[Rfam]
The record is a 247-nucleotide RNA sequence from Streptomyces sp. Ncost-T10-10d, which matches "Streptomyces sRNA 4677" in Rfam. The pairing is the family consensus, mapped onto this sequence. A reference for the family is Hindra et al. (2014), "Complex intra-operonic dynamics mediated by a small RNA in Streptomyces coelicolor", PLoS One. Located in the intergenic region between anti-sigma factor SCO4677 gene and a putative regulatory protein gene SCO4676. scr4677 expression requires the SCO4677 activity and scr4677 sRNA itself seem to affect the levels of the SCO4676-associated transcripts.
RNA sequence: CGAUGCGGCGGCCCCCGACGUAAAGGCUUUAAAGCCUUUGGGAAGAAGGAACUUCCCAACCCAACCCCUCCCCCGGCCUCAACCUGAGGCCCGUCACUCACACGGGUGAGGUUUGCCAACUGAGCUGGAUUUCACAGCGGUUGGCUGGCAUAUGCUCGCCGCGGCAACCGCAAACAUGCGUCGGCCCCCGGCCGGGAGAGCGAAUCCCGAUCGAGGGCCUGACCACCGAGGAAGUAAAGGCUUCCCG
Numbered sequence: 001c002g003a004u005g006c007g008g009c010g011g012c013c014c015c016c017g018a019c020g021u022a023a024a025g026g027c028u029u030u031a032a033a034g035c036c037u038u039u040g041g042g043a044a045g046a047a048g049g050a051a052c053u054u055c056c057c058a059a060c061c062c063a064a065c066c067c068c069u070c071c072c073c074c075g076g077c078c079u080c081a082a083c084c085u086g087a088g089g090c091c092c093g094u095c096a097c098u099c100a101c102a103c104g105g106g107u108g109a110g111g112u113u114u115g116c117c118a119a120c121u122g123a124g125c126u127g128g129a130u131u132u133c134a135c136a137g138c139g140g141u142u143g144g145c146u147g148g149c150a151u152a153u154g155c156u157c158g159c160c161g162c163g164g165c166a167a168c169c170g171c172a173a174a175c176a177u178g179c180g181u182c183g184g185c186c187c188c189c190g191g192c193c194g195g196g197a198g199a200g201c202g203a204a205u206c207c208c209g210a211u212c213g214a215g216g217g218c219c220u221g222a223c224c225a226c227c228g229a230g231g232a233a234g235u236a237a238a239g240g241c242u243u244c245c246c247g
Base pairs, nucleotide, nucleotide: 002227004225005224011077012076013075017074094109095108096107097106098105099104124160126158127157128156183219184218185217186216187215189213190212194208195207196206197205230245231244232243233242234241